[Rfam]
RNA: Flavo-1 RNA
Organism: Mesoflavibacter sp. HG96
RNA sequence: AGUUGGCUGGAAUGUGCGUUAGCGAUAGUAGCGACAUCCUUUUUGUUUAUUGAAAACAAAAAGAUAUAGCGAAUAGCGCGACCCAAU
Number, nucleotide and partner (000 for none) at each position: 001a000002g000003u000004u000005g000006g000007c000008u000009g000010g000011a000012a000013u000014g000015u000016g000017c000018g000019u000020u000021a000022g079023c078024g077025a000026u075027a074028g000029u000030a000031g070032c069033g000034a000035c000036a065037u064038c063039c000040u000041u000042u060043u059044u058045g057046u056047u055048u054049a000050u000051u000052g000053a000054a048055a047056a046057c045058a044059a043060a042061a000062a000063g038064a037065u036066a000067u000068a000069g032070c031071g000072a000073a000074u027075a026076g000077c024078g023079c022080g000081a000082c000083c000084c000085a000086a000087u000